[Rfam]
RNA: Fluoride riboswitch aptamer (crcB RNA motif)
RNA sequence: UUGCGUGCUGGAGAUGGCAUUCUCCAAUGGGUGUCCGGCGUGCGCUUCAACACACGCGCUCGCGCGAACCCAUUAACCGCCUCGUGCUGAUGAUGCCUGCUUCCCC
Numbered sequence: 001u002u003g004c005g006u007g008c009u010g011g012a013g014a015u016g017g018c019a020u021u022c023u024c025c026a027a028u029g030g031g032u033g034u035c036c037g038g039c040g041u042g043c044g045c046u047u048c049a050a051c052a053c054a055c056g057c058g059c060u061c062g063c064g065c066g067a068a069c070c071c072a073u074u075a076a077c078c079g080c081c082u083c084g085u086g087c088u089g090a091u092g093a094u095g096c097c098u099g100c101u102u103c104c105c106c
Base pairs, nucleotide, nucleotide: 010025011024012023013022016097017096018095019094020093021092079087080086